[Rfam]
RNA sequence: CUCCUAAGUAGAGGUGCGCAACUCAUUACUAGUAUUGUUUAGGUAGCUCCAAUGACAAUAAUACGAAAGGGAAUUGCGCCGAAGAAUGAAUAUUAAAGCUUAAGAUAUUCAUUCUGGGGAUGUGUUCGAAUAGAGACAUCACUGUCAUAGUCAAUUUUAAAUUAACUAUGGGGCGCUACUGAAAUA
Numbered sequence: 001c002u003c004c005u006a007a008g009u010a011g012a013g014g015u016g017c018g019c020a021a022c023u024c025a026u027u028a029c030u031a032g033u034a035u036u037g038u039u040u041a042g043g044u045a046g047c048u049c050c051a052a053u054g055a056c057a058a059u060a061a062u063a064c065g066a067a068a069g070g071g072a073a074u075u076g077c078g079c080c081g082a083a084g085a086a087u088g089a090a091u092a093u094u095a096a097a098g099c100u101u102a103a104g105a106u107a108u109u110c111a112u113u114c115u116g117g118g119g120a121u122g123u124g125u126u127c128g129a130a131u132a133g134a135g136a137c138a139u140c141a142c143u144g145u146c147a148u149a150g151u152c153a154a155u156u157u158u159a160a161a162u163u164a165a166c167u168a169u170g171g172g173g174c175g176c177u178a179c180u181g182a183a184a185u186a
Stems, first nucleotide, its partner, number of pairs: 007180005016079006023072002032064008083115012116143002119140005125134002145171007
This 186-nucleotide sequence from Moritella sp. Urea-trap-13 belongs to the Rfam family "Lysine riboswitch aptamer". The match comes from Rfam's covariance-model search (123 bits). The family's consensus secondary structure is taken from published work. From the family's description: Riboswitches are metabolite binding domains within certain messenger RNAs that serve as precision sensors for their corresponding targets.